[Rfam]
RNA sequence: CGCCGGACUUAAAGCAAUUUGAGUGCGCGAAUGGAAAUGUUCGCAGUAGAACCGCUUAAAUUCGGGGAAACCUUAUCGGUGACGAUUGGCAAUCCCGAGCCAAGCCUACUCACGAAAGUGAGUGUGGAAGGUGUAGAGACUUAACAGGCGGCACCUACGUCACGCCAGUAGCGUGAUAAGGUGAAGAGAAAGUCCAGACCACAAAUCUUUGCAUA
Numbered sequence: 001c002g003c004c005g006g007a008c009u010u011a012a013a014g015c016a017a018u019u020u021g022a023g024u025g026c027g028c029g030a031a032u033g034g035a036a037a038u039g040u041u042c043g044c045a046g047u048a049g050a051a052c053c054g055c056u057u058a059a060a061u062u063c064g065g066g067g068a069a070a071c072c073u074u075a076u077c078g079g080u081g082a083c084g085a086u087u088g089g090c091a092a093u094c095c096c097g098a099g100c101c102a103a104g105c106c107u108a109c110u111c112a113c114g115a116a117a118g119u120g121a122g123u124g125u126g127g128a129a130g131g132u133g134u135a136g137a138g139a140c141u142u143a144a145c146a147g148g149c150g151g152c153a154c155c156u157a158c159g160u161c162a163c164g165c166c167a168g169u170a171g172c173g174u175g176a177u178a179a180g181g182u183g184a185a186g187a188g189a190a191a192g193u194c195c196a197g198a199c200c201a202c203a204a205a206u207c208u209u210u211g212c213a214u215a
Stems, first nucleotide, its partner, number of pairs: 005026001007024007030041003052151004057146001062098006071089002099132002105126001106124001111120003136195001138194005154181003202211003
RNA: Group I catalytic intron
Organism: Spirosoma sp. KCTC 42546